RNA sequence: CGUACUAAUAAUUUGAUACUUCAUAUAAAUUCGAUAAUAUGGUUCGAGAGUUUCUACCAAAUCACCGUAAAUGAUUUGACUAUGAAGACAGGGAACUAGAUC
Numbered sequence: 001c002g003u004a005c006u007a008a009u010a011a012u013u014u015g016a017u018a019c020u021u022c023a024u025a026u027a028a029a030u031u032c033g034a035u036a037a038u039a040u041g042g043u044u045c046g047a048g049a050g051u052u053u054c055u056a057c058c059a060a061a062u063c064a065c066c067g068u069a070a071a072u073g074a075u076u077u078g079a080c081u082a083u084g085a086a087g088a089c090a091g092g093g094a095a096c097u098a099g100a101u102c
Base pairs, nucleotide, nucleotide: 019087020086021085022084023083024082025081030048031047032046033045034044058078059077060076061075062074063073064072
Rfam assigns this 102-nucleotide RNA sequence from Niallia endozanthoxylica to the family "Purine riboswitch aptamer". The base pairs follow the family's consensus structure, which is taken from published work.